Shown here is a 103-nucleotide sequence from Schaalia sp. 19OD2882, a member of the family "TPP riboswitch aptamer (THI element)". The match comes from Rfam's covariance-model search (61 bits). Taxonomically the source falls in Schaalia (Bacteria, Bacillati, Actinomycetota, Actinomycetaceae).

RNA sequence: GACGCAAGACAGGGGAGCCCCCUCACGGGAGCUGAGAGUGCGAUCGCAGACCCUCGAACCUGAUCCGGACAAUACCGGCGUAGGAAGUCACUUCUCUCGGGCA
Numbered sequence: 001g002a003c004g005c006a007a008g009a010c011a012g013g014g015g016a017g018c019c020c021c022c023u024c025a026c027g028g029g030a031g032c033u034g035a036g037a038g039u040g041c042g043a044u045c046g047c048a049g050a051c052c053c054u055c056g057a058a059c060c061u062g063a064u065c066c067g068g069a070c071a072a073u074a075c076c077g078g079c080g081u082a083g084g085a086a087g088u089c090a091c092u093u094c095u096c097u098c099g100g101g102c103a
Base pairs, nucleotide, nucleotide: 008089009088010087011054012053013052014051017032018031020029021028039048040047041046059084060083061082062081065078066077067076068075
The family's consensus secondary structure is taken from published work. From the family's description: Vitamin B(1) in its active form thiamin pyrophosphate (TPP) is an essential coenzyme that is synthesised by coupling of pyrimidine and thiazole moieties in bacteria. Gene Ontology term of the family: thiamine pyrophosphate binding.